Shown here is a 169-nucleotide sequence from Oncorhynchus mykiss, a member of the family "Small nucleolar RNA SNORA81". It scores 72 bits against the family's covariance model. Rfam classes the family as an H/ACA-box small nucleolar RNA. On this family, see Gu et al., Nucleic Acids Res 2005: "A novel experimental approach for systematic identification of box H/ACA snoRNAs from eukaryotes". The family has 28 seed sequences and 1,161 matches in Rfam 15.1. Pairs were carried over by alignment from the consensus structure, which was predicted with WAR.
[Rfam]
RNA sequence: ACAUCCCUUUUUAAAGCACCCUGCUAAAAUUGGGAGGGCGAAGCCUCACGGCUUGGCUCUUGCAAGCAUGUAAGCACGGGUACACCAAGGAAGGAGAGAAAAGGCACAGUGUCGCAAAUGAGGCUAGGGCGGUCCAAUGUCCUUUGUCUCAAGGCUACGUGCUACACUA
Numbered sequence: 001a002c003a004u005c006c007c008u009u010u011u012u013a014a015a016g017c018a019c020c021c022u023g024c025u026a027a028a029a030u031u032g033g034g035a036g037g038g039c040g041a042a043g044c045c046u047c048a049c050g051g052c053u054u055g056g057c058u059c060u061u062g063c064a065a066g067c068a069u070g071u072a073a074g075c076a077c078g079g080g081u082a083c084a085c086c087a088a089g090g091a092a093g094g095a096g097a098g099a100a101a102a103g104g105c106a107c108a109g110u111g112u113c114g115c116a117a118a119u120g121a122g123g124c125u126a127g128g129g130c131g132g133u134c135c136a137a138u139g140u141c142c143u144u145u146g147u148c149u150c151a152a153g154g155c156u157a158c159g160u161g162c163u164a165c166a167c168u169a
Stems, first nucleotide, its partner, number of pairs: 019080002022076004029069002035060002038057002041054005103163005111155001126140001128138001131135001